[Rfam]
RNA sequence: GCCUCUGAGGAUGAUCAAAUUAUAACUUUCGUUCUUCUGAGUUUAACAUGCGGAAAUUUCAUGGAGACCUGAACUGAAGAGGC
Numbered sequence: 001g002c003c004u005c006u007g008a009g010g011a012u013g014a015u016c017a018a019a020u021u022a023u024a025a026c027u028u029u030c031g032u033u034c035u036u037c038u039g040a041g042u043u044u045a046a047c048a049u050g051c052g053g054a055a056a057u058u059u060c061a062u063g064g065a066g067a068c069c070u071g072a073a074c075u076g077a078a079g080a081g082g083c
Base pairs, nucleotide, nucleotide: 003081004080005079006078

Record summary:
A member of the RNA family "Small nucleolar RNA Z159/U59" from Medicago truncatula, 83 nucleotides long. The family is grouped with related families in Rfam's "SNORD59 clan". NCBI's taxonomy places the organism under Eukaryota, Euphyllophyta, Mesangiospermae, Hologalegina, Medicago. Rfam classes the family as a C/D-box small nucleolar RNA. Its family is annotated with nucleolus and RNA processing in the Gene Ontology. The match comes from Rfam's covariance-model search (70 bits).